The family of this 81-nucleotide RNA sequence from Myotis myotis is "mir-574 microRNA precursor family". Gene Ontology terms of the family: miRNA-mediated post-transcriptional gene silencing and RISC complex. A search with the family's covariance model found it, with a score of 87 bits. The literature on the family includes a 2007 paper in Cancer Res by Lui et al., "Patterns of known and novel small RNAs in human cervical cancer". The family's consensus secondary structure was predicted with RNAalifold.
RNA sequence: AGACCUGCAGAGAGAAGCAGGGUCUGAUUCAUAGCUUCUGUGGCAGCUGUUAAUCAGCACUUGCUUCUCUCUUUCUCUCUG
Number, nucleotide and partner (000 for none) at each position: 001a000002g000003a000004c000005c000006u000007g000008c000009a072010g071011a070012g069013a068014g067015a066016a065017g064018c063019a062020g061021g000022g000023u000024c057025u056026g055027a054028u053029u052030c000031a000032u049033a048034g047035c046036u000037u000038c000039u000040g000041u000042g000043g000044c000045a000046g035047c034048u033049g032050u000051u000052a029053a028054u027055c026056a025057g024058c000059a000060c000061u020062u019063g018064c017065u016066u015067c014068u013069c012070u011071c010072u009073u000074u000075c000076u000077c000078u000079c000080u000081g000